[Rfam]
RNA sequence: GGCUGGUCUGAAGGUAGUUAUCUCAGUUGAUUGUUCACAGUCAGUUACAGCUUGAAUUCCUUGUUCUGCUCUUACCCCGUUCUCACUACUCGACUAGCCUAAA
Numbered sequence: 001g002g003c004u005g006g007u008c009u010g011a012a013g014g015u016a017g018u019u020a021u022c023u024c025a026g027u028u029g030a031u032u033g034u035u036c037a038c039a040g041u042c043a044g045u046u047a048c049a050g051c052u053u054g055a056a057u058u059c060c061u062u063g064u065u066c067u068g069c070u071c072u073u074a075c076c077c078c079g080u081u082c083u084c085a086c087u088a089c090u091c092g093a094c095u096a097g098c099c100u101a102a103a
Stems, first nucleotide, its partner, number of pairs: 001099008010091002016087002039070003043067002
RNA: Y RNA
Organism: Chlorocebus sabaeus